[Rfam]
The record is a 48-nucleotide sequence from Gossypium klotzschianum, which matches "Plastid-atpF group II-D1 intron" in Rfam. Plastid atpF is a non-coding RNA (ncRNA) recognised in plastids. The family has 49 seed sequences and 1,372 matches in Rfam 15.1. Pairs were carried over by alignment from the consensus structure, which was predicted with LocARNA. It scores 60 bits against the family's covariance model. NCBI's taxonomy places the organism under Eukaryota, Spermatophyta, Magnoliopsida, rosids, Gossypium. The literature on the family includes a 2023 paper in Plant Commun by Richter et al., "Retrograde signaling in plants: A critical review focusing on the GUN pathway and beyond".
RNA sequence: UUUUUUCGAUAUAAAACACUCAUGUCGAUAAAACGAUUUGAGCCCCUU
Numbered sequence: 001u002u003u004u005u006u007c008g009a010u011a012u013a014a015a016a017c018a019c020u021c022a023u024g025u026c027g028a029u030a031a032a033a034c035g036a037u038u039u040g041a042g043c044c045c046c047u048u
Stems, first nucleotide, its partner, number of pairs: 006028007